[Rfam]
RNA: Plastid-psbN 5UTR RNA
Organism: Protea cynaroides
RNA sequence: UGCAACAUCCAUUAAAAGGGUAGUUCCCAUCCAAGAGCUAUUUUACCAUAUUCUGAAUUC
Numbered sequence: 001u002g003c004a005a006c007a008u009c010c011a012u013u014a015a016a017a018g019g020g021u022a023g024u025u026c027c028c029a030u031c032c033a034a035g036a037g038c039u040a041u042u043u044u045a046c047c048a049u050a051u052u053c054u055g056a057a058u059u060c
Stems, first nucleotide, its partner, number of pairs: 017044010